[Rfam]
Notes:
Shown here is a 102-nucleotide RNA from Bacillus sp. FJAT-27231, a member of the family "Purine riboswitch aptamer". Taxonomically the source falls in Bacillus (Bacteria, Bacillota, Bacilli, Bacillaceae). The family's consensus secondary structure is taken from published work.
RNA sequence: AUUAAAUAAAACUAACGCUUUUGUAUAAGUUCAAGAAUAGGGCUUGAACGUUUCUACCAGGCUGCCGUAAAUAGCCUGACUACAAAGGAUAGUGGAGAUGUU
Numbered sequence: 001a002u003u004a005a006a007u008a009a010a011a012c013u014a015a016c017g018c019u020u021u022u023g024u025a026u027a028a029g030u031u032c033a034a035g036a037a038u039a040g041g042g043c044u045u046g047a048a049c050g051u052u053u054c055u056a057c058c059a060g061g062c063u064g065c066c067g068u069a070a071a072u073a074g075c076c077u078g079a080c081u082a083c084a085a086a087g088g089a090u091a092g093u094g095g096a097g098a099u100g101u102u
Base pairs, nucleotide, nucleotide: 018088019087020086021085022084023083024082025081029049030048031047032046033045034044035043058078059077060076061075062074063073064072